[Rfam]
RNA: c-di-AMP riboswitch aptamer (ydaO/yuaA leader)
RNA sequence: GCGAUCGAAUUGCGGAAUAUGUGCUGUGGAGAAGCGGGGGAACCAAAGCUGUUCUGGUUCCGGUGUGAGAGCCGGAAUUUUAACAGCAGGGGUGAAUCCUGGAAUUAGUUCAACCAUGGAGAUUCUAAUUCCGGUAGGGCGUCUCUCACCGCCCGAAUCCGACAGCUAACCUCGUAGGCGGAAGUGAAGAGAGGA
Numbered sequence: 001g002c003g004a005u006c007g008a009a010u011u012g013c014g015g016a017a018u019a020u021g022u023g024c025u026g027u028g029g030a031g032a033a034g035c036g037g038g039g040g041a042a043c044c045a046a047a048g049c050u051g052u053u054c055u056g057g058u059u060c061c062g063g064u065g066u067g068a069g070a071g072c073c074g075g076a077a078u079u080u081u082a083a084c085a086g087c088a089g090g091g092g093u094g095a096a097u098c099c100u101g102g103a104a105u106u107a108g109u110u111c112a113a114c115c116a117u118g119g120a121g122a123u124u125c126u127a128a129u130u131c132c133g134g135u136a137g138g139g140c141g142u143c144u145c146u147c148a149c150c151g152c153c154c155g156a157a158u159c160c161g162a163c164a165g166c167u168a169a170c171c172u173c174g175u176a177g178g179c180g181g182a183a184g185u186g187a188a189g190a191g192a193g194g195a
Stems, first nucleotide, its partner, number of pairs: 011180003018033001020031001034175006044089001090160003098134002101131003137154004